[Rfam]
RNA sequence: GCAACCUGCAACUGGCGCGGCGCGACCCCGUGGUGUUUCACUCCCUGCUGGGCAUCAGCUGGAUGUGGUUCUUCGGCGCGGUGUUCCUGUCGCUGUUCCCCGCCUACGCCAAGGACGUGCUG
Dot-bracket structure: .........(.(.((.(.(..(((.(.....).)))..).).))..).).(((((...((.((.(.((..(..(((((.((....)))))))..)..))...).)....).))...))))).
Rfam assigns this 122-nucleotide RNA sequence from Hylemonella gracilis to the family "Burkholderia RNA 11". About the family: Co-purified with Hfq, expression confirmed by Northern blot. Predicted target marZ. Overlaps coding sequence. Taxonomically the source falls in Hylemonella gracilis (Bacteria, Betaproteobacteria, Burkholderiales, Comamonadaceae). The base pairs follow the family's consensus structure, which was predicted with RNAfold.